The record is a 121-nucleotide RNA sequence from Illicium floridanum, which matches "Plastid-psbA-1 3UTR RNA" in Rfam.
RNA sequence: UGUCGAAGCUCCGUCUAUAAACGGAUAAGAUAAGACUAAGACUUCGGUCUUAAUGUAUAUAAGACAUUGAAGGAACAAUACCCAACUUCUUGAUAAAACAAGAAAUUGGGUAUUGUUCCUU
Numbered sequence: 001u002g003u004c005g006a007a008g009c010u011c012c013g014u015c016u017a018u019a020a021a022c023g024g025a026u027a028a029g030a031u032a033a034g035a036c037u038a039a040g041a042c043u044u045c046g047g048u049c050u051u052a053a054u055g056u057a058u059a060u061a062a063g064a065c066a067u068u069g070a071a072g073g074a075a076c077a078a079u080a081c082c083c084a085a086c087u088u089c090u091u092g093a094u095a096a097a098a099c100a101a102g103a104a105a106u107u108g109g110g111u112a113u114u115g116u117u118c119c120u121u
Stems, first nucleotide, its partner, number of pairs: 010025005072119010083108003087104005

The organism belongs to Illicium, within Eukaryota. Rfam describes the family as follows. Plastid psbA-1 is a non-coding RNA (ncRNA) present in plastids. It was identified in inverted repeat sequences in the 3 prime untranslate region (3UTR) of photosystem II quinone-binding protein (psbA). The base pairs follow the family's consensus structure, which was predicted with LocARNA.